[Rfam]
Nucleotides: 509
Base pairs, nucleotide, nucleotide: 009025010024011023012022013021027499028498029497030496032495033494034493035492036491037490039371040370041369042368043367044366045364046363047329052327053326054325056324057323058322061088062087063086066085067084069082070081071080072079073078095282096281097280104207105206106205107204108203109202110201113199114198118195119194120193121192122191123190124189126160127159128158129157135150136149137148138147139146140145166175167174168173180187181186208254209253210252215245216244217243220242221241222240223239224238225237226236227235257279258278259277260276261272262271263270264269284305285304286303287302288301307318308317309316310315335361337360338359339358343356344355345354346353347352374404375403376402377401384395385394386393387392408440410435411434412433413432414431418426443488444487445486446485447484454483455482456481457480458479464471465470
Number, partner (000 for none) and nucleotide at each position: 001000a002000a003000a004000c005000c006000u007000g008000a009025g010024a011023g012022u013021u014000u015000g016000a017000u018000c019000c020000u021013g022012g023011c024010u025009c026000a027499g028498a029497a030496c031000g032495a033494a034493c035492g036491c037490u038000g039371g040370c041369g042368g043367c044366a045364g046363g047329c048000c049000u050000a051000a052327c053326a054325c055000a056324u057323g058322c059000a060000a061088g062087u063086c064000g065000a066085a067084c068000g069082a070081a071080g072079g073078c074000u075000u076000c077000g078073g079072c080071c081070u082069u083000a084067g085066u086063g087062g088061c089000g090000g091000a092000c093000g094000g095282g096281u097280g098000a099000g100000u101000a102000a103000c104207a105206c106205g107204u108203g109202g110201g111000a112000a113199c114198g115000u116000g117000c118195c119194c120193u121192u122191g123190g124189g125000u126160u127159c128158g129157g130000g131000a132000u133000a134000a135150c136149g137148u138147c139146u140145g141000g142000a143000a144000a145140c146139g147138g148137a149136c150135g151000c152000u153000a154000a155000u156000a157129c158128c159127g160126g161000a162000u163000g164000u165000c166175c167174c168173c169000u170000g171000c172000g173168g174167g175166g176000g177000a178000a179000a180187g181186a182000u183000u184000u185000a186181u187180c188000g189124c190123c191122u192121g193120a194119g195118g196000a197000g198114c199113g200000g201110c202109c203108c204107g205106c206105g207104u208254c209253c210252g211000a212000u213000u214000a215245g216244c217243u218000a219000g220242a221241u222240g223239g224238u225237g226236g227235g228000g229000u230000a231000a232000a233000g234000g235227c236226c237225u238224a239223c240222c241221a242220u243217g244216g245215c246000g247000a248000c249000g250000a251000u252210c253209g254208g255000u256000a257279g258278c259277u260276g261272g262271u263270c264269u265000g266000a267000g268000a269264g270263g271262a272261u273000g274000a275000u276260c277259a278258g279257c280097c281096a282095c283000a284305c285304u286303g287302g288301g289000a290000c291000u292000g293000a294000g295000a296000c297000a298000c299000g300000g301288c302287c303286c304285a305284g306000a307318c308317u309316c310315c311000u312000a313000c314000g315310g316309g317308a318307g319000g320000c321000a322058g323057c324056a325054g326053u327052g328000g329047g330000g331000a332000a333000u334000a335361u336000u337360g338359g339358a340000c341000a342000a343356u344355g345354g346353g347352c348000g349000g350000a351000a352347g353346c354345c355344u356343g357000a358339u359338c360337c361335a362000g363046c364045c365000a366044u367043g368042c369041c370040g371039c372000g373000u374404g375403a376402g377401u378000g379000a380000u381000g382000a383000a384395g385394g386393c387392c388000u389000u390000c391000g392387g393386g394385u395384u396000g397000u398000a399000a400000a401377g402376c403375u404374c405000u406000u407000u408440c409000g410435c411434a412433c413432g414431c415000g416000a417000c418426g419000a420000u421000g422000a423000u424000g425000a426418c427000g428000g429000u430000a431414g432413c433412g434411u435410g436000a437000g438000a439000a440408g441000a442000a443488g444487c445486c446485c447484c448000g449000g450000c451000u452000a453000a454483c455482u456481u457480c458479g459000u460000g461000c462000c463000a464471g465470c466000a467000g468000c469000c470465g471464c472000g473000g474000u475000a476000a477000u478000a479458c480457g481456a482455a483454g484447g485446g486445g487444g488443c489000u490037a491036g492035c493034g494033u495032u496030g497029u498028u499027c500000g501000g502000a503000a504000u505000u506000a507000c508000u509000g

This 509-nucleotide part of an RNA from Rhodospirillum centenum belongs to the Rfam family "Bacterial small subunit ribosomal RNA". The family's consensus secondary structure is taken from published work. Gene Ontology terms of the family: structural constituent of ribosome and ribosome. Lineage of the source: Bacteria > Pseudomonadati > Rhodospirillales > Rhodospirillum > Rhodospirillum centenum. The literature on the family includes a 2002 paper in BMC Bioinformatics by Cannone et al., "The comparative RNA web (CRW) site: an online database of comparative sequence and structure information for ribosomal, intron, and other RNAs".